[Rfam]
RNA sequence: GUGUGCUUAUGAAGAUCGCUAACAAAAGAGUGAUUAGCUCAGUUAGUGUUCAGAUGCCCUCACAC
Numbered sequence: 001g002u003g004u005g006c007u008u009a010u011g012a013a014g015a016u017c018g019c020u021a022a023c024a025a026a027a028g029a030g031u032g033a034u035u036a037g038c039u040c041a042g043u044u045a046g047u048g049u050u051c052a053g054a055u056g057c058c059c060u061c062a063c064a065c
Stems, first nucleotide, its partner, number of pairs: 001065005014051002017048007029039003
RNA: Selenocysteine insertion sequence 1